[Rfam]
RNA sequence: UAGCUUAGCUAGGGGUGCCCGAAUAUCCGGGCUGAGAAAACACCCUUAGAACCUGAGUCUGGGUAAUACCAGCGGAGGGAAGCUGUUUAUCAAGGAA
Number, nucleotide and partner (000 for none) at each position: 001u000002a000003g000004c000005u000006u085007a084008g083009c082010u081011a046012g045013g044014g043015g000016u040017g032018c031019c030020c029021g028022a000023a000024u000025a000026u000027c000028c021029g020030g019031g018032c017033u000034g000035a000036g000037a000038a000039a000040a016041c000042a000043c014044c013045c012046u011047u000048a000049g000050a000051a000052c078053c077054u076055g000056a000057g000058u000059c072060u071061g070062g069063g000064u000065a000066a000067u000068a000069c062070c061071a060072g059073c000074g000075g000076a054077g053078g052079g000080a000081a010082g009083c008084u007085g006086u000087u000088u000089a000090u000091c000092a000093a000094g000095g000096a000097a000
About this RNA
The family of this 97-nucleotide RNA from Phormidium nigroviride is "TPP riboswitch aptamer (THI element)". Lineage of the source: Bacteria > Cyanophyceae > Oscillatoriales > Oscillatoriaceae > Phormidium nigroviride. The family has 115 seed sequences and 16,130 matches in Rfam 15.1. A reference for the family is Rodionov et al. (2002), "Comparative genomics of thiamin biosynthesis in procaryotes. New genes and regulatory mechanisms", J Biol Chem. A search with the family's covariance model found it, with a score of 72 bits.